RNA sequence: UGUUUGAAUAUGAGAAUUGGAUGAAACCAAACCCCUAAACUCCUUUUCAUUCUUUCUUAAGUCGUAACAGAUGGUUUUGUUUCCUCCAAUAUCUCAUCUUCAACAA
Numbered sequence: 001u002g003u004u005u006g007a008a009u010a011u012g013a014g015a016a017u018u019g020g021a022u023g024a025a026a027c028c029a030a031a032c033c034c035c036u037a038a039a040c041u042c043c044u045u046u047u048c049a050u051u052c053u054u055u056c057u058u059a060a061g062u063c064g065u066a067a068c069a070g071a072u073g074g075u076u077u078u079g080u081u082u083c084c085u086c087c088a089a090u091a092u093c094u095c096a097u098c099u100u101c102a103a104c105a106a
Base pairs, nucleotide, nucleotide: 004103005102006101007100008099011096012095013094014093016090017089018088019087020086021085023083024082025081026080027079029077030076032074033073
Description:
The family of this 106-nucleotide sequence from Coptis chinensis is "MIR2275 microRNA precursor family". Taxonomically the source falls in Coptis (Eukaryota, Spermatophyta, Magnoliopsida, Mesangiospermae). The family has 13 seed sequences and 785 matches in Rfam 15.1. The match comes from Rfam's covariance-model search (69 bits). Its family is annotated with miRNA-mediated post-transcriptional gene silencing and RISC complex in the Gene Ontology.